[Rfam]
RNA sequence: ACCUGCAUUCGAAAGUGAUCGCGGCCUGACCCGUGGCCCGGUCAUCGAUAGUGCAGGGAGAGGAGCGGCGAGAGCUUUCCCGUGUUUGGGGGGGCGUCCCCACCCCCCCAGACCCUGUUGCUGUCGGACA
Numbered sequence: 001a002c003c004u005g006c007a008u009u010c011g012a013a014a015g016u017g018a019u020c021g022c023g024g025c026c027u028g029a030c031c032c033g034u035g036g037c038c039c040g041g042u043c044a045u046c047g048a049u050a051g052u053g054c055a056g057g058g059a060g061a062g063g064a065g066c067g068g069c070g071a072g073a074g075c076u077u078u079c080c081c082g083u084g085u086u087u088g089g090g091g092g093g094g095c096g097u098c099c100c101c102a103c104c105c106c107c108c109c110a111g112a113c114c115c116u117g118u119u120g121c122u123g124u125c126g127g128a129c130a
Stems, first nucleotide, its partner, number of pairs: 002057008015045007023038004069126003073122003084113005089107005

The family of this 130-nucleotide RNA from Brachypteracias leptosomus is "Small nucleolar RNA SNORA71".
The match comes from Rfam's covariance-model search (104 bits).
The members of this family belong to the H/ACA class of snoRNAs which bind a number of proteins (including dyskerin, Gar1p and Nop10p) to form snoRNP complexes.
The base pairs follow the family's consensus structure, which was predicted with PFOLD.
The literature on the family includes a 1997 paper in Genes Dev by Ganot et al., "The family of box ACA small nucleolar RNAs is defined by an evolutionarily conserved secondary structure and ubiquitous sequence elements essential for RNA accumulation".